[Rfam]
RNA sequence: GCGGGCAGCUGGACGGCCGCUGCCGGAAGCGCGCAAGCGGGACCGGGAGAGGAAAGUCCGAACUCCGCAGGGCAGUGUGCCGGAUAACGUCCGGGAUCCGGGCUUCAAGGCCCGGAGACGGCCAGUGCCACAGAGAAAAUACCGCCAAGCCGGUGCGCAAGCAACGGAAGGUAAGGGUGAAAAGGUGCGGUAAGAGCGCACCGCUUCUGCGGCAACGCAGAGGGCAGGGUAAACCCCACACGGAGCAAGACCAAAUAGGGAGGGAACAACAGCCCGGCUCCACAGGCUGUUGUGCGUGCCGGCCCGGCGCGCCAACGGGAGCUCCUGCUUGUGCUCGCAAGAGCCACGCAGGCGGAAACCUCCGGGUAGGUUGCUUGAGCGUGUCAGUAAUGGCACGCCUAGAGGAAUGGCCGUCUCGGACGCAAGUCCAGACAGAAUUCGGCUUACAGGCUGCUCGCCUGC
Numbered sequence: 001g002c003g004g005g006c007a008g009c010u011g012g013a014c015g016g017c018c019g020c021u022g023c024c025g026g027a028a029g030c031g032c033g034c035a036a037g038c039g040g041g042a043c044c045g046g047g048a049g050a051g052g053a054a055a056g057u058c059c060g061a062a063c064u065c066c067g068c069a070g071g072g073c074a075g076u077g078u079g080c081c082g083g084a085u086a087a088c089g090u091c092c093g094g095g096a097u098c099c100g101g102g103c104u105u106c107a108a109g110g111c112c113c114g115g116a117g118a119c120g121g122c123c124a125g126u127g128c129c130a131c132a133g134a135g136a137a138a139a140u141a142c143c144g145c146c147a148a149g150c151c152g153g154u155g156c157g158c159a160a161g162c163a164a165c166g167g168a169a170g171g172u173a174a175g176g177g178u179g180a181a182a183a184g185g186u187g188c189g190g191u192a193a194g195a196g197c198g199c200a201c202c203g204c205u206u207c208u209g210c211g212g213c214a215a216c217g218c219a220g221a222g223g224g225c226a227g228g229g230u231a232a233a234c235c236c237c238a239c240a241c242g243g244a245g246c247a248a249g250a251c252c253a254a255a256u257a258g259g260g261a262g263g264g265a266a267c268a269a270c271a272g273c274c275c276g277g278c279u280c281c282a283c284a285g286g287c288u289g290u291u292g293u294g295c296g297u298g299c300c301g302g303c304c305c306g307g308c309g310c311g312c313c314a315a316c317g318g319g320a321g322c323u324c325c326u327g328c329u330u331g332u333g334c335u336c337g338c339a340a341g342a343g344c345c346a347c348g349c350a351g352g353c354g355g356a357a358a359c360c361u362c363c364g365g366g367u368a369g370g371u372u373g374c375u376u377g378a379g380c381g382u383g384u385c386a387g388u389a390a391u392g393g394c395a396c397g398c399c400u401a402g403a404g405g406a407a408u409g410g411c412c413g414u415c416u417c418g419g420a421c422g423c424a425a426g427u428c429c430a431g432a433c434a435g436a437a438u439u440c441g442g443c444u445u446a447c448a449g450g451c452u453g454c455u456c457g458c459c460u461g462c
Stems, first nucleotide, its partner, number of pairs: 001458010011447001012415007020049002023046004054445003058442005063245004073285001075241005080094005095119001097116008120236002125234002127230003142176002144172003151166002184202006203225001204223008249372004259363005379398008
About this RNA
Bacterial RNase P class A: a 462-nucleotide sequence from Acidipila sp. EB88. From the family's description: Ribonuclease P (RNase P) is a ubiquitous endoribonuclease, found in archaea, bacteria and eukarya as well as chloroplasts and mitochondria. The match comes from Rfam's covariance-model search (261 bits).